RNA sequence: GCUUUUCCCCCCCUCCCGCGGGCGUGGGCUACAGAGAAGCUCGCAGGCUCGGGGGGGAAGAGC
Numbered sequence: 001g002c003u004u005u006u007c008c009c010c011c012c013c014u015c016c017c018g019c020g021g022g023c024g025u026g027g028g029c030u031a032c033a034g035a036g037a038a039g040c041u042c043g044c045a046g047g048c049u050c051g052g053g054g055g056g057g058a059a060g061a062g063c
Base pairs, nucleotide, nucleotide: 001063002062003061004060008057009056010055011054013052014051018044021041022040023039024032025031
Notes
Rfam assigns this 63-nucleotide RNA from Geococcyx californianus to the family "MAT2A 3'UTR stem loop A". Rfam classes the family as a cis-regulatory element. The base pairs follow the family's consensus structure, which is taken from published work. The family has 20 seed sequences and 595 matches in Rfam 15.1.